[Rfam]
A member of the RNA family "Ribosomal protein L20 leader" from Fructilactobacillus florum, 132 nucleotides long.

RNA sequence: AGUUAAAAGCAGAAGUUUCCCGCUUCUCGCCUGAGUAACGCUUAGUUGCUGGGCUUUCGAUGCAAAAUCUAUCAACUACUAUGAUAGAAAUAGCGGGUUCUCUGUUAAGAGGAUCCGCUAUUUUUCUGCUAA
Numbered sequence: 001a002g003u004u005a006a007a008a009g010c011a012g013a014a015g016u017u018u019c020c021c022g023c024u025u026c027u028c029g030c031c032u033g034a035g036u037a038a039c040g041c042u043u044a045g046u047u048g049c050u051g052g053g054c055u056u057u058c059g060a061u062g063c064a065a066a067a068u069c070u071a072u073c074a075a076c077u078a079c080u081a082u083g084a085u086a087g088a089a090a091u092a093g094c095g096g097g098u099u100c101u102c103u104g105u106u107a108a109g110a111g112g113a114u115c116c117g118c119u120a121u122u123u124u125u126c127u128g129c130u131a132a
Base pairs, nucleotide, nucleotide: 011027012026013025014024015023016022029054030053031052035049036048037047038046039045092119093118094117095116096115097114098113099112100111101110102109103108

This family is a putative r-protein leader autoregulatory structure found in B. subtilis and other low-GC Gram-positive bacteria.
It is annotated as a cis-regulatory leader.
Lineage of the source: Bacteria > Bacilli > Lactobacillaceae > Fructilactobacillus > Fructilactobacillus florum.